[Rfam]
RNA: Small nucleolar RNA SNORA29
Organism: Rattus norvegicus
RNA sequence: UGUCCCAUUUGACUACCACAUUUCCUACUGAUAAUAGAUUUUGGUGGCUAUGCUUAUGGGAUAGAUUAAAGGUGCCAUGAUCUGAAGGGAGAGGGCUUUUCCAUGCCCUCCCUCUAUAUGAAAUGGCUGGACAGUGAACC
Numbered sequence: 001u002g003u004c005c006c007a008u009u010u011g012a013c014u015a016c017c018a019c020a021u022u023u024c025c026u027a028c029u030g031a032u033a034a035u036a037g038a039u040u041u042u043g044g045u046g047g048c049u050a051u052g053c054u055u056a057u058g059g060g061a062u063a064g065a066u067u068a069a070a071g072g073u074g075c076c077a078u079g080a081u082c083u084g085a086a087g088g089g090a091g092a093g094g095g096c097u098u099u100u101c102c103a104u105g106c107c108c109u110c111c112c113u114c115u116a117u118a119u120g121a122a123a124u125g126g127c128u129g130g131a132c133a134g135u136g137a138a139c140c
Stems, first nucleotide, its partner, number of pairs: 004060004016047004074127004092115004